[Rfam]
RNA sequence: GAAUAGCUGCGGGGGAACUCGUCUGAGUUGAGAAGGUAAAACCUGACCCUUUGAACCUGUUGGUUAACACCAUCGUAGGGAGCAUUUUUCUGUGGACU
Numbered sequence: 001g002a003a004u005a006g007c008u009g010c011g012g013g014g015g016a017a018c019u020c021g022u023c024u025g026a027g028u029u030g031a032g033a034a035g036g037u038a039a040a041a042c043c044u045g046a047c048c049c050u051u052u053g054a055a056c057c058u059g060u061u062g063g064u065u066a067a068c069a070c071c072a073u074c075g076u077a078g079g080g081a082g083c084a085u086u087u088u089u090c091u092g093u094g095g096a097c098u
Stems, first nucleotide, its partner, number of pairs: 006086001008084003011050004016044001017028004035043003056079004061072003
Shown here is a 98-nucleotide RNA sequence from Feifania hominis, a member of the family "TPP riboswitch aptamer (THI element)".